[Rfam]
RNA: Eukaryotic large subunit ribosomal RNA, nucleotides 2468 to 3032
Organism: Trichinella sp. T8
RNA sequence: UAGAAUAAUGUAGGUAAGGGAAGUCGGCAAAACGGAUCCGUAACUUCGGAACAAGGAUUGGCUCUAAGGGCUGGGCCGAUCGGGCUGAGGUUUCAAGCGUGCAGUGUAUGCUUGGCUGAGUUGUGUUGAGGACUUGUUCACUUGCCGCCGUUUGUUCGGUUGGUCUAGUGUAUUCGAGUCUGAAGCAGAGCUGGCCGACAGACCGGCACGUGCAGAACCUGAGCUGCGCGGCUGUCCGUUUACGUGUACAGACCGUUUCGGUCGGCAUUCAACAGCCAACUUAGAACUGGCACGGACACAAGGAAUCUGACUGUAUAAUUAAAACAAAGCAUUGCGAUGGCCGAUGAUCGGUGAUGACGCAAUGUGAUUUCUGCCCAGUGCUCUGAAUGUCAAAGUGAAGAAAUUCAAUCAAGCGCGGGUAAACGGCGGGAGUAACUAUGACUCUCUUAAGGUAGCCAAAUGCCUCGUCAUCUAAUUAGUGACGCGUAUGAAUGGAUCAACAAGAUUCCUUCUGUCCCUAUCUACUAUCUAGCGAAACCACAGCCAAGGGAACGGGCUUGGCAAA
Numbered sequence: 001u002a003g004a005a006u007a008a009u010g011u012a013g014g015u016a017a018g019g020g021a022a023g024u025c026g027g028c029a030a031a032a033c034g035g036a037u038c039c040g041u042a043a044c045u046u047c048g049g050a051a052c053a054a055g056g057a058u059u060g061g062c063u064c065u066a067a068g069g070g071c072u073g074g075g076c077c078g079a080u081c082g083g084g085c086u087g088a089g090g091u092u093u094c095a096a097g098c099g100u101g102c103a104g105u106g107u108a109u110g111c112u113u114g115g116c117u118g119a120g121u122u123g124u125g126u127u128g129a130g131g132a133c134u135u136g137u138u139c140a141c142u143u144g145c146c147g148c149c150g151u152u153u154g155u156u157c158g159g160u161u162g163g164u165c166u167a168g169u170g171u172a173u174u175c176g177a178g179u180c181u182g183a184a185g186c187a188g189a190g191c192u193g194g195c196c197g198a199c200a201g202a203c204c205g206g207c208a209c210g211u212g213c214a215g216a217a218c219c220u221g222a223g224c225u226g227c228g229c230g231g232c233u234g235u236c237c238g239u240u241u242a243c244g245u246g247u248a249c250a251g252a253c254c255g256u257u258u259c260g261g262u263c264g265g266c267a268u269u270c271a272a273c274a275g276c277c278a279a280c281u282u283a284g285a286a287c288u289g290g291c292a293c294g295g296a297c298a299c300a301a302g303g304a305a306u307c308u309g310a311c312u313g314u315a316u317a318a319u320u321a322a323a324a325c326a327a328a329g330c331a332u333u334g335c336g337a338u339g340g341c342c343g344a345u346g347a348u349c350g351g352u353g354a355u356g357a358c359g360c361a362a363u364g365u366g367a368u369u370u371c372u373g374c375c376c377a378g379u380g381c382u383c384u385g386a387a388u389g390u391c392a393a394a395g396u397g398a399a400g401a402a403a404u405u406c407a408a409u410c411a412a413g414c415g416c417g418g419g420u421a422a423a424c425g426g427c428g429g430g431a432g433u434a435a436c437u438a439u440g441a442c443u444c445u446c447u448u449a450a451g452g453u454a455g456c457c458a459a460a461u462g463c464c465u466c467g468u469c470a471u472c473u474a475a476u477u478a479g480u481g482a483c484g485c486g487u488a489u490g491a492a493u494g495g496a497u498c499a500a501c502a503a504g505a506u507u508c509c510u511u512c513u514g515u516c517c518c519u520a521u522c523u524a525c526u527a528u529c530u531a532g533c534g535a536a537a538c539c540a541c542a543g544c545c546a547a548g549g550g551a552a553c554g555g556g557c558u559u560g561g562c563a564a565a
Stems, first nucleotide, its partner, number of pairs: 001531004010525007018517003035059005044049001060288002063285006069277005075266009084224003088220004097211004102205001104203001107202001109200002289293001301510007308502002312326003329365008338354001340352004369496003373427003378424002380420004385416001388415003396407004428446006447451001467483005544561005